[Rfam]
Nucleotides: 146
Stems, first nucleotide, its partner, number of pairs: 003062006013054003019048003023042004028037001084141002087138003100134001102132001106130002111125002114122001
Number, partner (000 for none) and nucleotide at each position: 001000a002000c003062c004061c005060c006059c007058u008057g009000g010000c011000a012000a013054u014053g015052g016000g017000c018000a019048a020047g021046g022000a023042g024041a025040c026039a027000g028037c029000u030000g031000a032000u033000u034000a035000g036000u037028g038000g039026u040025g041024u042023u043000g044000c045000u046021c047020u048019u049000a050000u051000a052015u053014c054013a055000a056000u057008c058007a059006g060005g061004g062003g063000c064000a065000a066000a067000g068000c069000a070000g071000a072000c073000a074000u075000a076000c077000a078000g079000u080000c081000c082000c083000u084141u085140a086000g087138u088137u089136c090000a091000u092000c093000c094000a095000a096000g097000c098000u099000u100134g101000a102132u103000g104000c105000c106130u107129g108000u109000c110000u111125u112124g113000g114122u115000g116000g117000c118000c119000a120000g121000a122114g123000c124112u125111g126000u127000u128000u129107c130106a131000u132102g133000c134100c135000u136089g137088a138087g139000a140085u141084a142000a143000a144000u145000a146000u
Rfam assigns this 146-nucleotide RNA sequence from Cnephaeus nilssonii to the family "Small nucleolar RNA SNORA48". Pairs were carried over by alignment from the consensus structure, which was predicted with RNAalifold. Its family is annotated with RNA processing and nucleolus in the Gene Ontology. Taxonomically the source falls in Cnephaeus (Eukaryota, Teleostomi, Eutheria, Chiroptera). About the family: The snoRNA ACA 48 has been identified to guide pseudouridylation of the residue U3797 in the 28S rRNA subunit. The literature on the family includes a 1997 paper in J Mol Biol by Ofengand and Bakin, "Mapping to nucleotide resolution of pseudouridine residues in large subunit ribosomal RNAs from representative eukaryotes, prokaryotes, archaebacteria, mitochondria and chloroplasts". Clan: SNORA48 clan.